Glutamine-II riboswitch aptamer: a 58-nucleotide RNA from Prochlorococcus marinus. Lineage of the source: Bacteria > Synechococcales > Prochlorococcaceae > Prochlorococcus > Prochlorococcus marinus. A reference for the family is Huang et al. (2019), "Structure and ligand binding of the glutamine-II riboswitch", Nucleic Acids Res.
RNA sequence: AACCGUUGGCCCCCUUCCGGGGCGCAGUCAGACUUAAGCCAGGCAACGGGGGCUUAAG
Numbered sequence: 001a002a003c004c005g006u007u008g009g010c011c012c013c014c015u016u017c018c019g020g021g022g023c024g025c026a027g028u029c030a031g032a033c034u035u036a037a038g039c040c041a042g043g044c045a046a047c048g049g050g051g052g053c054u055u056a057a058g
Stems, first nucleotide, its partner, number of pairs: 004048005010022004033058006039051002